[Rfam]
RNA sequence: AAGAUUGCGGUGAUGAAGCAAUUUUUUGUGGACUAGAGUUUCUGAUCAGGGACGUAGUUCCUAUGGUUGAAGACUAACCCUUGGCUGUCUGAGCCUCCUC
Numbered sequence: 001a002a003g004a005u006u007g008c009g010g011u012g013a014u015g016a017a018g019c020a021a022u023u024u025u026u027u028g029u030g031g032a033c034u035a036g037a038g039u040u041u042c043u044g045a046u047c048a049g050g051g052a053c054g055u056a057g058u059u060c061c062u063a064u065g066g067u068u069g070a071a072g073a074c075u076a077a078c079c080c081u082u083g084g085c086u087g088u089c090u091g092a093g094c095c096u097c098c099u100c
Base pairs, nucleotide, nucleotide: 002099003098007094008093039072040071041070042069046065048062049061050060051059